[Rfam]
RNA sequence: UGGUAGAUGCACCCUGAUUCUAAUCUCCCGAUCCCUCUUUUGAGGGGAGGGAGGUUUUCUU
Numbered sequence: 001u002g003g004u005a006g007a008u009g010c011a012c013c014c015u016g017a018u019u020c021u022a023a024u025c026u027c028c029c030g031a032u033c034c035c036u037c038u039u040u041u042g043a044g045g046g047g048a049g050g051g052a053g054g055u056u057u058u059c060u061u
Stems, first nucleotide, its partner, number of pairs: 002013003025053005032047005

Rfam assigns this 61-nucleotide RNA from Leptolyngbya sp. FACHB-16 to the family "Nitrogen stress-induced RNA 1". On this family, see Ionescu et al., J Mol Biol 2010: "Heterocyst-specific transcription of NsiR1, a non-coding RNA encoded in a tandem array of direct repeats in cyanobacteria". It scores 43 bits against the family's covariance model. The family's RNA type in Rfam is small RNA.